[Rfam]
RNA sequence: AUAUAAGUAAAAUUGACUUUUUAGGUUCAUUCAUUUAAUGAUGUAUGUGAUUCAUAAUAUGGAUCACAUACAUCAUUAAAUGAAUGAACCUAAAAAAUAAAUUUUGCUUAUAU
Numbered sequence: 001a002u003a004u005a006a007g008u009a010a011a012a013u014u015g016a017c018u019u020u021u022u023a024g025g026u027u028c029a030u031u032c033a034u035u036u037a038a039u040g041a042u043g044u045a046u047g048u049g050a051u052u053c054a055u056a057a058u059a060u061g062g063a064u065c066a067c068a069u070a071c072a073u074c075a076u077u078a079a080a081u082g083a084a085u086g087a088a089c090c091u092a093a094a095a096a097a098u099a100a101a102u103u104u105u106g107c108u109u110a111u112a113u
Base pairs, nucleotide, nucleotide: 002112003111004110005109006108007107009105010104011103012102013100014099015098018096019095020094021093022092023091024090026088027087028086029085030084031083032082033081034080035079036078037077038076039075040074041073042072043071048066049065050064051063
RNA: MIR2593 microRNA precursor family
Organism: Medicago truncatula